[Rfam]
RNA sequence: GUGGGCAGUAAGUUGAUGGGGUCCCAGGUUGUGAGGAAUUCCCGGGACUACGUCAACUACUUGCUUAA
Numbered sequence: 001g002u003g004g005g006c007a008g009u010a011a012g013u014u015g016a017u018g019g020g021g022u023c024c025c026a027g028g029u030u031g032u033g034a035g036g037a038a039u040u041c042c043c044g045g046g047a048c049u050a051c052g053u054c055a056a057c058u059a060c061u062u063g064c065u066u067a068a
Stems, first nucleotide, its partner, number of pairs: 004065005011058008020049006027042002
A member of the RNA family "mir-1990 microRNA precursor family" from Magallana gigas, 68 nucleotides long. Its family is annotated with RISC complex and miRNA-mediated post-transcriptional gene silencing in the Gene Ontology.